[Rfam]
RNA sequence: CUCGCAGCCCUUGCCCCGCUAUCGAGGGGACUGAAAC
Numbered sequence: 001c002u003c004g005c006a007g008c009c010c011u012u013g014c015c016c017c018g019c020u021a022u023c024g025a026g027g028g029g030a031c032u033g034a035a036a037c
Stems, first nucleotide, its partner, number of pairs: 012033002014029004
RNA: CRISPR RNA direct repeat element